[Rfam]
Record summary:
Rfam assigns this 525-nucleotide part of an RNA from Macrostomum lignano to the family "Eukaryotic large subunit ribosomal RNA". The organism belongs to Macrostomum, within Eukaryota. The family's consensus secondary structure is taken from published work.
RNA sequence: CCCUCCGAAGUUUCCCUCAGGAUAGCUGGCACUCGGGAAACAGUUUUAUCCGGUAAAGCGAAUGAUUAGAGGCAUUGGGGUCGAAACGACCUCGACCUAUUCUCAAACUUUAAAUGGGUAAGAUGCUCGUCUCGCUUAAUUGGAGGCGGGCUUCACCUCUCUAACGUGAAUGUGAGUGCCCAGUGGGCCAUUUUUGGUAAGCAGAACUGGCGCUGUGGGAUGAACCAAACGCGCGGUUAAGGCGCCCAAUGCGGACGCUCAUGAGACACCACAAAAGGUGUUGGUCGAUACUGACAGCAGGACGGUGGCCAUGGAAGUCGGAACCCGCUAAGGAGUGUGUAACAACUCACCUGCCGAAUCAACCAGCCCUGAAAAUGGAUGGCGCUGGAGCGUCGGGCCUAUACCGUGCCGUUGGGGCGAAGCAGACAAAUAAUCUGUGUGGAUGUCCCAACGAGUAGGAGGGUCGCCGUGGUGAGCGCAGAAGGUGCGGCCGUGAGGCCGGCUGGAGCCGCCACGGGCGCAGAU
Numbered sequence: 001c002c003c004u005c006c007g008a009a010g011u012u013u014c015c016c017u018c019a020g021g022a023u024a025g026c027u028g029g030c031a032c033u034c035g036g037g038a039a040a041c042a043g044u045u046u047u048a049u050c051c052g053g054u055a056a057a058g059c060g061a062a063u064g065a066u067u068a069g070a071g072g073c074a075u076u077g078g079g080g081u082c083g084a085a086a087c088g089a090c091c092u093c094g095a096c097c098u099a100u101u102c103u104c105a106a107a108c109u110u111u112a113a114a115u116g117g118g119u120a121a122g123a124u125g126c127u128c129g130u131c132u133c134g135c136u137u138a139a140u141u142g143g144a145g146g147c148g149g150g151c152u153u154c155a156c157c158u159c160u161c162u163a164a165c166g167u168g169a170a171u172g173u174g175a176g177u178g179c180c181c182a183g184u185g186g187g188c189c190a191u192u193u194u195u196g197g198u199a200a201g202c203a204g205a206a207c208u209g210g211c212g213c214u215g216u217g218g219g220a221u222g223a224a225c226c227a228a229a230c231g232c233g234c235g236g237u238u239a240a241g242g243c244g245c246c247c248a249a250u251g252c253g254g255a256c257g258c259u260c261a262u263g264a265g266a267c268a269c270c271a272c273a274a275a276a277g278g279u280g281u282u283g284g285u286c287g288a289u290a291c292u293g294a295c296a297g298c299a300g301g302a303c304g305g306u307g308g309c310c311a312u313g314g315a316a317g318u319c320g321g322a323a324c325c326c327g328c329u330a331a332g333g334a335g336u337g338u339g340u341a342a343c344a345a346c347u348c349a350c351c352u353g354c355c356g357a358a359u360c361a362a363c364c365a366g367c368c369c370u371g372a373a374a375a376u377g378g379a380u381g382g383c384g385c386u387g388g389a390g391c392g393u394c395g396g397g398c399c400u401a402u403a404c405c406g407u408g409c410c411g412u413u414g415g416g417g418c419g420a421a422g423c424a425g426a427c428a429a430a431u432a433a434u435c436u437g438u439g440u441g442g443a444u445g446u447c448c449c450a451a452c453g454a455g456u457a458g459g460a461g462g463g464u465c466g467c468c469g470u471g472g473u474g475a476g477c478g479c480a481g482a483a484g485g486u487g488c489g490g491c492c493g494u495g496a497g498g499c500c501g502g503c504u505g506g507a508g509c510c511g512c513c514a515c516g517g518g519c520g521c522a523g524a525u
Stems, first nucleotide, its partner, number of pairs: 001463006011024001013022003028180006044123008056111001057109002063105003068100001070098003075095006082088001125151009187211004192206005216227003231409005237403001241399003250396001252395001256392003276370003280367006287360003297354005303327003309321002328332001333348001337346002410453009465520001467517008476509002484504002490499003